Description: A member of the RNA family "IS605-orfB-I RNA", 216 nucleotides long. The base pairs follow the family's consensus structure, which is taken from published work.
[Rfam]
RNA sequence: AUCUUAUAUAGAUGUAGUGACGCAAGACAGUGACGCAUUUCCCUUUAAGAUAGGUUUUAAGACAGAAGCUCUAACAGCAAGUUUUAUUGUGAAGCAAUAGUUGAAAUAAAAUGAGUUAGAGUGGGAUAGGUUAACCGUAAGACCUUAAGUUGGAAAACUUUAAAUUGGAUCUAAGAGUCAAAUUUCUUAAUUUUCGUACUUUUUAGUUACGGUUGC
Numbered sequence: 001a002u003c004u005u006a007u008a009u010a011g012a013u014g015u016a017g018u019g020a021c022g023c024a025a026g027a028c029a030g031u032g033a034c035g036c037a038u039u040u041c042c043c044u045u046u047a048a049g050a051u052a053g054g055u056u057u058u059a060a061g062a063c064a065g066a067a068g069c070u071c072u073a074a075c076a077g078c079a080a081g082u083u084u085u086a087u088u089g090u091g092a093a094g095c096a097a098u099a100g101u102u103g104a105a106a107u108a109a110a111a112u113g114a115g116u117u118a119g120a121g122u123g124g125g126a127u128a129g130g131u132u133a134a135c136c137g138u139a140a141g142a143c144c145u146u147a148a149g150u151u152g153g154a155a156a157a158c159u160u161u162a163a164a165u166u167g168g169a170u171c172u173a174a175g176a177g178u179c180a181a182a183u184u185u186c187u188u189a190a191u192u193u194u195c196g197u198a199c200u201u202u203u204u205a206g207u208u209a210c211g212g213u214u215g216c
Stems, first nucleotide, its partner, number of pairs: 001051006008044001010040006017034002020031002022028001068122008082111007093102002128145005134213006140166001147160005171206007178196001